[Rfam]
RNA: Plant small nucleolar RNA U3
Organism: Phtheirospermum japonicum
RNA sequence: ACGACCUUACUUGAACAAGAUCUGUUCUAUAGGGUUGUACCUCUUUAUCCUUGAUUUCUAAGGAGACAAGAAACCAAGUCUGGUGGAUGAACCAUGGCUGCCCGGUCAGAGCGUGAUUAACAGACCCUGUGGCUCGAUUUGGGUCCCACAUGGGUCAGUAGAUGAUCGCUCUUGAGCUGGCCACGGCUAGCCAAGAUGGCCUGGCUAGCCAAGUCUAGUAGAUG
Dot-bracket structure: (((.(((.....(((((.....)))))...))).).)).....(.(.((((((.....)))))).).).........(((((..............((((((.(((((.((((......((.((((((((((..(.......)..))))).))))).)).......)))).(((.((((((....)))))))))..))))).))).))).........))))).
Numbered sequence: 001a002c003g004a005c006c007u008u009a010c011u012u013g014a015a016c017a018a019g020a021u022c023u024g025u026u027c028u029a030u031a032g033g034g035u036u037g038u039a040c041c042u043c044u045u046u047a048u049c050c051u052u053g054a055u056u057u058c059u060a061a062g063g064a065g066a067c068a069a070g071a072a073a074c075c076a077a078g079u080c081u082g083g084u085g086g087a088u089g090a091a092c093c094a095u096g097g098c099u100g101c102c103c104g105g106u107c108a109g110a111g112c113g114u115g116a117u118u119a120a121c122a123g124a125c126c127c128u129g130u131g132g133c134u135c136g137a138u139u140u141g142g143g144u145c146c147c148a149c150a151u152g153g154g155u156c157a158g159u160a161g162a163u164g165a166u167c168g169c170u171c172u173u174g175a176g177c178u179g180g181c182c183a184c185g186g187c188u189a190g191c192c193a194a195g196a197u198g199g200c201c202u203g204g205c206u207a208g209c210c211a212a213g214u215c216u217a218g219u220a221g222a223u224g
Stems, first nucleotide, its partner, number of pairs: 001038002003035001005033003013027005044068001046066001048064006078223005097209003100205003104201005110170004120159002123156005128150005135143001172194003176191006